Rfam assigns this 134-nucleotide RNA sequence from Bacillus manliponensis to the family "c-di-AMP riboswitch aptamer (ydaO/yuaA leader)".
RNA sequence: UAUUCAAGAACGCUGAGCCCAAAAAUGGGGCGGGGGAACCAAUCAAUUUGGGGUGAAUCUUUCGUAUGAAAGUAGGGCUACUUUCAAGGUCCGAAUCCGUCAGCUAACCUCGUAAGCGUGUUGGGAGAGGAUGA
Numbered sequence: 001u002a003u004u005c006a007a008g009a010a011c012g013c014u015g016a017g018c019c020c021a022a023a024a025a026u027g028g029g030g031c032g033g034g035g036g037a038a039c040c041a042a043u044c045a046a047u048u049u050g051g052g053g054u055g056a057a058u059c060u061u062u063c064g065u066a067u068g069a070a071a072g073u074a075g076g077g078c079u080a081c082u083u084u085c086a087a088g089g090u091c092c093g094a095a096u097c098c099g100u101c102a103g104c105u106a107a108c109c110u111c112g113u114a115a116g117c118g119u120g121u122u123g124g125g126a127g128a129g130g131a132u133g134a
Stems, first nucleotide, its partner, number of pairs: 011118004018029003030113006040050002051098003059072004075092004
The match comes from Rfam's covariance-model search (116 bits).